This 75-nucleotide RNA belongs to the Rfam family "DUF3800-IX RNA". Rfam describes the family as follows. Actinobacteria, Firmicutes (1 example), Nitrospirae, Proteobacteria, Verrucomicrobia (1 example).
RNA sequence: UCCCCUCUAGCGAAGAGUCGCCAAUUGUCGGCGGCCUGCCCGGACCAUUGUUCUGGGAUAGCUAGAGGGGUUUUC
Numbered sequence: 001u002c003c004c005c006u007c008u009a010g011c012g013a014a015g016a017g018u019c020g021c022c023a024a025u026u027g028u029c030g031g032c033g034g035c036c037u038g039c040c041c042g043g044a045c046c047a048u049u050g051u052u053c054u055g056g057g058a059u060a061g062c063u064a065g066a067g068g069g070g071u072u073u074u075c
Stems, first nucleotide, its partner, number of pairs: 002070010017035006039057006